RNA sequence: GGCUCGGGACGACCCGCGCCGUUGAACUGCAUUCCGGGACGACCCGG
Numbered sequence: 001g002g003c004u005c006g007g008g009a010c011g012a013c014c015c016g017c018g019c020c021g022u023u024g025a026a027c028u029g030c031a032u033u034c035c036g037g038g039a040c041g042a043c044c045c046g047g
Stems, first nucleotide, its partner, number of pairs: 001020003005016004034047005